This 100-nucleotide sequence from Molossus molossus belongs to the Rfam family "Vault RNA". The match comes from Rfam's covariance-model search (38 bits). A reference for the family is Stadler et al. (2009), "Evolution of Vault RNAs", Mol Biol Evol. By type it is a non-coding RNA gene. The source organism's lineage runs through Eukaryota, Bilateria, Craniata, Molossidae and Molossus.
[Rfam]
RNA sequence: AGGCUGGCUUUAGCUCAGCAAUUCCUUUGAGUCAAGCCUUCAUUUGCCAACCACUCUUGCUUGAGAGGUUCGAGACCCAUAGGCGCCCUGCAGCCCUUUA
Numbered sequence: 001a002g003g004c005u006g007g008c009u010u011u012a013g014c015u016c017a018g019c020a021a022u023u024c025c026u027u028u029g030a031g032u033c034a035a036g037c038c039u040u041c042a043u044u045u046g047c048c049a050a051c052c053a054c055u056c057u058u059g060c061u062u063g064a065g066a067g068g069u070u071c072g073a074g075a076c077c078c079a080u081a082g083g084c085g086c087c088c089u090g091c092a093g094c095c096c097u098u099u100a
Base pairs, nucleotide, nucleotide: 002095003094004093005092006091013084014083015082018080026074027073028072029071030070